[Rfam]
RNA sequence: AAUCUCAAACUCUGAUCUGCUCAUUCAAACUCUGAAUGGUUUGGAUUCUGAAUAUAAUCCUGUAGUUGUCAAAUUAUAUGAUCAAACUACACUCAGUUGGGUUGAUCUACAGGCUCAAUUGCUAACCUUUGACA
Numbered sequence: 001a002a003u004c005u006c007a008a009a010c011u012c013u014g015a016u017c018u019g020c021u022c023a024u025u026c027a028a029a030c031u032c033u034g035a036a037u038g039g040u041u042u043g044g045a046u047u048c049u050g051a052a053u054a055u056a057a058u059c060c061u062g063u064a065g066u067u068g069u070c071a072a073a074u075u076a077u078a079u080g081a082u083c084a085a086a087c088u089a090c091a092c093u094c095a096g097u098u099g100g101g102u103u104g105a106u107c108u109a110c111a112g113g114c115u116c117a118a119u120u121g122c123u124a125a126c127c128u129u130u131g132a133c134a
Stems, first nucleotide, its partner, number of pairs: 005132004085103004
RNA: Small nucleolar RNA Z247